RNA: Sense overlapping transcript RNA 2652 (sot)
RNA sequence: AUUACCGGACUCGCAAAACCCAACCGUUUGUUCGGAAGGUGAGCCUGUCUGGGUCGGGGCGCUCUGUAAACCGCCCAUCCUCAUCCCGCAAAAUCGCUUCGCGUGGAGUGCUGUCGGCGUAGGCUGAGUGAAUUAGAAAAGCCACGGGUCACCCGACCCGUGGUCGUUUACCUAUCUGGGGAGUGUGUG
Numbered sequence: 001a002u003u004a005c006c007g008g009a010c011u012c013g014c015a016a017a018a019c020c021c022a023a024c025c026g027u028u029u030g031u032u033c034g035g036a037a038g039g040u041g042a043g044c045c046u047g048u049c050u051g052g053g054u055c056g057g058g059g060c061g062c063u064c065u066g067u068a069a070a071c072c073g074c075c076c077a078u079c080c081u082c083a084u085c086c087c088g089c090a091a092a093a094u095c096g097c098u099u100c101g102c103g104u105g106g107a108g109u110g111c112u113g114u115c116g117g118c119g120u121a122g123g124c125u126g127a128g129u130g131a132a133u134u135a136g137a138a139a140a141g142c143c144a145c146g147g148g149u150c151a152c153c154c155g156a157c158c159c160g161u162g163g164u165c166g167u168u169u170a171c172c173u174a175u176c177u178g179g180g181g182a183g184u185g186u187g188u189g
Stems, first nucleotide, its partner, number of pairs: 005052006013044002020039002024035002053079001057076005065070001087189002095185006102178002104174003112170002114127005141164009